[Rfam]
The record is a 69-nucleotide RNA sequence, which matches "Transposase-2 RNA" in Rfam.
RNA sequence: GAAGUGCGAACCAAGCCGCGGUGCAAACCGCGUGAGACUUGGAGCGGACGAGCACAAGCACGUCCUGCA
Dot-bracket structure: ..........(((((..(((((....)))))......)))))...(((((.((....)).)))))....
Rfam 15.1 lists 214 matches to the family in 110 species. The sequence is in the family's curated seed alignment. The family's consensus secondary structure is taken from published work. Rfam classes the family as a small RNA.